Shown here is a 399-nucleotide sequence from Amycolatopsis keratiniphila, a member of the family "Bacterial RNase P class A".
[Rfam]
RNA sequence: CGAGUCGGCGGGGCGGCCGCGAGCCGGGAAACCGGUUCGAGGAAAGUCCGGACUCCACAGGGCAGGGUGGUUGUUAACGGCAACCCGGGGCGACCCGCGGGACAGUGCCACAGAAAACAGACCGCCUCCGCUCGCUUCGCGGGCGGAGGUAAGGGUGAAACGGUGGUGUAAGAGACCACCAGCGUCCUGGGUGACCAGGACGGCUAGGUAAACCCCACCCGGAGCAAGGCCAAGAGGGAGCCGCGAGGCUCCUGCGCAGGCGAUCGAGGGCUGCCCGCCCGAGCCUGCGGGUAGGCCGCUCGAGCCCGCCGGCGACGGCGGGCCUAGAUGGAUGGCCGCCACCCGUGCCGCCGCAAGGCGGGGCGGGGACAGGAUCCGGCUUACACGCCGGCUCGUCCG
Number, nucleotide and partner (000 for none) at each position: 001c395002g394003a393004g392005u391006c390007g389008g388009c387010g386011g384012g340013g339014c338015g337016g336017c335018c334019g000020c039021g038022a037023g036024c035025c034026g033027g032028g000029a000030a000031a000032c027033c026034g025035g024036u023037u022038c021039g020040a000041g000042g000043a000044a382045a381046g380047u000048c379049c378050g377051g376052a375053c224054u223055c222056c221057a000058c000059a000060g276061g275062g274063c273064a000065g220066g219067g218068u217069g216070g084071u083072u082073g081074u080075u000076a000077a000078c000079g000080g074081c073082a072083a071084c070085c099086c097087g096088g095089g094090g000091c000092g000093a000094c089095c088096c087097g086098c000099g085100g215101g214102a000103c000104a000105g213106u212107g209108c208109c207110a000111c000112a000113g000114a000115a000116a000117a000118c000119a000120g000121a000122c154123c153124g150125c149126c148127u147128c146129c145130g144131c143132u142133c141134g140135c000136u000137u000138c000139g000140c134141g133142g132143g131144c130145g129146g128147a127148g126149g125150u124151a000152a000153g123154g122155g000156u000157g000158a000159a000160a000161c000162g180163g179164u178165g177166g176167u175168g000169u000170a000171a000172g000173a000174g000175a167176c166177c165178a164179c163180c162181a000182g204183c202184g201185u200186c199187c198188u197189g196190g195191g000192u000193g000194a000195c190196c189197a188198g187199g186200a185201c184202g183203g000204c182205u000206a000207g109208g108209u107210a000211a000212a106213c105214c101215c100216c069217a068218c067219c066220c065221g056222g055223a054224g053225c000226a000227a000228g297229g296230c295231c294232a000233a000234g000235a000236g000237g000238g000239a000240g000241c000242c000243g000244c000245g000246a000247g000248g000249c000250u000251c000252c000253u000254g000255c000256g288257c287258a286259g285260g284261c283262g000263a000264u000265c000266g000267a000268g280269g279270g278271c277272u000273g063274c062275c061276c060277g271278c270279c269280c268281g000282a000283g261284c260285c259286u258287g257288c256289g000290g000291g000292u000293a000294g231295g230296c229297c228298g000299c000300u000301c000302g000303a000304g323305c322306c321307c320308g319309c318310c317311g316312g000313c000314g000315a000316c311317g310318g309319c308320g307321g306322g305323c304324c000325u000326a000327g000328a000329u000330g000331g000332a000333u000334g018335g017336c016337c015338g014339c013340c012341a000342c000343c000344c000345g000346u000347g000348c000349c000350g000351c000352c000353g000354c000355a000356a000357g000358g000359c000360g000361g000362g000363g000364c000365g000366g000367g000368g000369a000370c000371a000372g000373g000374a000375u052376c051377c050378g049379g048380c046381u045382u044383a000384c011385a000386c010387g009388c008389c007390g006391g005392c004393u003394c002395g001396u000397c000398c000399g000
Taxonomically the source falls in Amycolatopsis (Bacteria, Actinomycetota, Actinomycetes, Pseudonocardiaceae). A search with the family's covariance model found it, with a score of 289 bits. About the family: Ribonuclease P (RNase P) is a ubiquitous endoribonuclease, found in archaea, bacteria and eukarya as well as chloroplasts and mitochondria.